RNA sequence: UUUUUUUGGUUAAUUGGCCAUAACUGUAGUGAACCUAUAGUUUUAAAUCAUCAAAUUGACGGGAACCUCCUAAAGCAAUCUUAACCAAGUAAGUAUGGUAACAUAACUUAUGGCACAGGUAAUGACUCGUGAUAUGGUAAAAUCAAGAUUUAUAAUUCAAUGGAAAAUCCGCAGCCAAGUACCAAUUGUAUCUAUAAAUAUAUCUGGUAUGCAGUUCAUCGACUAAAUGGUGAUUAGUAUCGUCAGUAUGACGAUGCUUAAGAUAUAGUCAAACCCUAUCUGAAAAGGUACA
Numbered sequence: 001u002u003u004u005u006u007u008g009g010u011u012a013a014u015u016g017g018c019c020a021u022a023a024c025u026g027u028a029g030u031g032a033a034c035c036u037a038u039a040g041u042u043u044u045a046a047a048u049c050a051u052c053a054a055a056u057u058g059a060c061g062g063g064a065a066c067c068u069c070c071u072a073a074a075g076c077a078a079u080c081u082u083a084a085c086c087a088a089g090u091a092a093g094u095a096u097g098g099u100a101a102c103a104u105a106a107c108u109u110a111u112g113g114c115a116c117a118g119g120u121a122a123u124g125a126c127u128c129g130u131g132a133u134a135u136g137g138u139a140a141a142a143u144c145a146a147g148a149u150u151u152a153u154a155a156u157u158c159a160a161u162g163g164a165a166a167a168u169c170c171g172c173a174g175c176c177a178a179g180u181a182c183c184a185a186u187u188g189u190a191u192c193u194a195u196a197a198a199u200a201u202a203u204c205u206g207g208u209a210u211g212c213a214g215u216u217c218a219u220c221g222a223c224u225a226a227a228u229g230g231u232g233a234u235u236a237g238u239a240u241c242g243u244c245a246g247u248a249u250g251a252c253g254a255u256g257c258u259u260a261a262g263a264u265a266u267a268g269u270c271a272a273a274c275c276c277u278a279u280c281u282g283a284a285a286a287g288g289u290a291c292a
Base pairs, nucleotide, nucleotide: 001016004013026035046235047234048233049232050231052229053228057173058172060171061170062169063168068164069163070162174215175214179210180209181208182207188203189202190201191200219271221270222269223268224267225266237257238256239255240254241253242252243251244250245249277290278289279288280287281286
This 292-nucleotide sequence from Coemansia spiralis belongs to the Rfam family "Group I catalytic intron". Rfam 15.1 lists 5,602 matches to the family in 1,395 species. The source organism's lineage runs through Eukaryota, Opisthokonta, Kickxellomycota, Kickxellomycotina and Coemansia. For this family Rfam cites "Self-splicing of group I introns" (Cech, Annu Rev Biochem, 1990). Group I catalytic introns are large self-splicing ribozymes.